[Rfam]
RNA: RNase MRP
Organism: Fukomys damarensis
Nucleotides: 278
Base pairs, nucleotide, nucleotide: 003277004276005275006274007273008272009271010270011269014231015230016229017228018227019226022066023065024064025063026062027061028060037051038050039049040048041047071263072262074261075260076259077258086098087097088096089095099114100113101112102111103110104109116203117202118201122197123196124195125194126193131190132189133188141186142185143184144183169179170178171177233248234247235246236245237244
Number, partner (000 for none) and nucleotide at each position: 001000g002000c003277u004276c005275g006274u007273g008272c009271u010270g011269a012000a013000g014231g015230c016229c017228u018227g019226u020000u021000u022066c023065c024064u025063a026062g027061g028060c029000u030000a031000c032000a033000a034000a035000c036000g037051g038050a039049g040048g041047a042000c043000u044000u045000g046000u047041u048040c049039c050038u051037u052000g053000u054000c055000c056000a057000c058000u059000c060028g061027c062026c063025u064024a065023g066022g067000g068000g069000a070000a071263a072262g073000u074261c075260c076259c077258c078000g079000g080000a081000c082000c083000u084000u085000g086098g087097g088096c089095a090000g091000a092000g093000a094000g095089u096088g097087c098086c099114a100113c101112g102111u103110g104109u105000u106000c107000g108000c109104g110103c111102a112101c113100g114099u115000a116203g117202a118201c119000u120000a121000g122197u123196c124195c125194g126193c127000a128000c129000u130000u131190c132189a133188c134000a135000g136000c137000u138000a139000g140000c141186c142185c143184g144183c145000c146000a147000a148000g149000a150000a151000g152000c153000u154000u155000c156000a157000c158000g159000g160000g161000u162000c163000c164000u165000u166000g167000g168000g169179g170178c171177u172000c173000a174000g175000g176000u177171a178170g179169c180000u181000g182000a183144g184143c185142g186141g187000c188133g189132u190131g191000u192000c193126g194125c195124g196123g197122g198000a199000a200000a201118g202117u203116c204000a205000u206000c207000c208000g209000u210000c211000a212000g213000c214000u215000c216000c217000u218000c219000u220000a221000g222000u223000a224000a225000c226019g227018c228017a229016g230015g231014c232000a233248g234247u235246g236245c237244g238000c239000c240000c241000g242000u243000c244237c245236g246235c247234a248233c249000c250000a251000a252000c253000c254000u255000c256000a257000c258077g259076g260075g261074g262072c263071u264000c265000a266000u267000u268000c269011u270010c271009a272008g273007c274006g275005c276004g277003g278000c